[Rfam]
RNA sequence: CCUCUGUUAGGAAGGGUGUCAGGGGAGAGGUUGUCCCGUGUCCGUAAAUAUGCAAAACUUAUUUUCCCCAAGGCAGAGG
Number, nucleotide and partner (000 for none) at each position: 001c079002c078003u077004c076005u075006g074007u073008u000009a000010g000011g000012a000013a000014g000015g000016g000017u000018g000019u070020c000021a000022g068023g067024g066025g065026a064027g063028a062029g000030g053031u052032u000033g000034u000035c000036c000037c000038g045039u000040g000041u000042c000043c000044g000045u038046a000047a000048a000049u000050a000051u000052g031053c030054a000055a000056a000057a000058c000059u000060u000061a000062u028063u027064u026065u025066c024067c023068c022069c000070a019071a000072g000073g007074c006075a005076g004077a003078g002079g001
A member of the RNA family "mir-1275 microRNA precursor family" from Papio anubis, 79 nucleotides long. It scores 72 bits against the family's covariance model. The family's consensus secondary structure was predicted with RNAalifold.